[Rfam]
Shown here is a 100-nucleotide RNA, a member of the family "DUF3800-VII RNA".

RNA sequence: AAUGAGUGAGUAGUUUGCCGAGAUACUAAAGGGUAUGCUUAAUGUAUACCAGCAGGCUUGCCUUGUGGAAUUUUUUAGUCGGAGGAAAACUCAUUUUUUU
Number, nucleotide and partner (000 for none) at each position: 001a095002a094003u093004g092005a091006g090007u089008g000009a000010g000011u000012a000013g000014u000015u000016u083017g000018c082019c081020g080021a079022g000023a000024u000025a000026c078027u077028a076029a075030a074031g073032g050033g049034u048035a047036u046037g045038c044039u000040u000041a000042a000043u000044g038045u037046a036047u035048a034049c033050c032051a000052g000053c065054a064055g063056g062057c000058u000059u000060g000061c000062c056063u055064u054065g053066u000067g000068g000069a000070a000071u000072u000073u031074u030075u029076u028077a027078g026079u021080c020081g019082g018083a016084g000085g000086a000087a000088a000089a007090c006091u005092c004093a003094u002095u001096u000097u000098u000099u000100u000
By type it is a small RNA. Rfam's curators put it in the seed alignment.